[Rfam]
RNA sequence: CAGUAGAUGGGAGAUGGCAUUCCUCCCGGCGCAAUGAGAGCUGCCGCUUUCCUUGCGCCCAACCGCCGCCCGCUUCAGCCGGGUAGCUGAUGAUGCCUACAGACGU
Number, nucleotide and partner (000 for none) at each position: 001c000002a000003g000004u000005a000006g000007a000008u000009g000010g026011g025012a024013g023014a000015u000016g097017g096018c095019a094020u093021u092022c000023c013024u012025c011026c010027c000028g000029g000030c000031g000032c000033a000034a000035u000036g000037a000038g000039a000040g000041c000042u000043g000044c000045c000046g000047c000048u000049u000050u000051c000052c000053u000054u000055g000056c000057g000058c000059c000060c000061a000062a000063c000064c000065g087066c086067c000068g084069c083070c082071c081072g080073c000074u000075u000076c000077a000078g000079c000080c072081g071082g070083g069084u068085a000086g066087c065088u000089g000090a000091u000092g021093a020094u019095g018096c017097c016098u000099a000100c000101a000102g000103a000104c000105g000106u000
Record summary:
A member of the RNA family "Fluoride riboswitch aptamer (crcB RNA motif)" from Parundibacterium terreum, 106 nucleotides long.